Source information: The record is a 98-nucleotide RNA from Morus notabilis, which matches "MIR535 microRNA precursor family" in Rfam. A reference for the family is Zeng et al. (2010), "Conservation and divergence of microRNAs and their functions in Euphorbiaceous plants", Nucleic Acids Res. Taxonomically the source falls in Morus (Eukaryota, Viridiplantae, Magnoliopsida, fabids). Gene Ontology terms of the family: miRNA-mediated post-transcriptional gene silencing and RISC complex.
RNA sequence: AUAUUUGGAUGACAACGAGAGAGAGCACGCUUGUUGAUAAUCAUGCGCAAGAUGGCAUGGCUGUGCACAUGCGUGCUCUCCUUCGUUGUCAUUCAAAA
Numbered sequence: 001a002u003a004u005u006u007g008g009a010u011g012a013c014a015a016c017g018a019g020a021g022a023g024a025g026c027a028c029g030c031u032u033g034u035u036g037a038u039a040a041u042c043a044u045g046c047g048c049a050a051g052a053u054g055g056c057a058u059g060g061c062u063g064u065g066c067a068c069a070u071g072c073g074u075g076c077u078c079u080c081c082u083u084c085g086u087u088g089u090c091a092u093u094c095a096a097a098a
Base pairs, nucleotide, nucleotide: 010091011090012089013088014087016085017084021080023078025076026075027074028073029072030071032069033068034067